[Rfam]
RNA sequence: GGCGAUAAAUGAUACCGCGCUUCGGCGCAGCGGACCCGGGGGCAGUACCCGGCGGCUCCACCAGAAACCUCCGGAAACGGGGGCUCCUGACGGGGCCGAACCAGGAUCGACGUGCGGACGGACACGGUGUUUUUGCCCGGGCUGAGUAACCCGUUAAAGGCUCGAAACCACAAGUGCCAACGACAACGAGGCGCUCGCGAUUGCCGCGUAA
Numbered sequence: 001g002g003c004g005a006u007a008a009a010u011g012a013u014a015c016c017g018c019g020c021u022u023c024g025g026c027g028c029a030g031c032g033g034a035c036c037c038g039g040g041g042g043c044a045g046u047a048c049c050c051g052g053c054g055g056c057u058c059c060a061c062c063a064g065a066a067a068c069c070u071c072c073g074g075a076a077a078c079g080g081g082g083g084c085u086c087c088u089g090a091c092g093g094g095g096c097c098g099a100a101c102c103a104g105g106a107u108c109g110a111c112g113u114g115c116g117g118a119c120g121g122a123c124a125c126g127g128u129g130u131u132u133u134u135g136c137c138c139g140g141g142c143u144g145a146g147u148a149a150c151c152c153g154u155u156a157a158a159g160g161c162u163c164g165a166a167a168c169c170a171c172a173a174g175u176g177c178c179a180a181c182g183a184c185a186a187c188g189a190g191g192c193g194c195u196c197g198c199g200a201u202u203g204c205c206g207c208g209u210a211a
Stems, first nucleotide, its partner, number of pairs: 001137005014128004026116003030113003036052005053098007138153004

The family of this 211-nucleotide RNA sequence from Sphingomonas sanxanigenens is "permuted transfer-messenger RNA". Rfam describes the family as follows. Bacterial tmRNA, also known as 10Sa RNA or SsrA, is named for its dual tRNA and mRNA-like properties. By type it is a non-coding RNA gene. Rfam links the family to the GO term RNA catabolic process.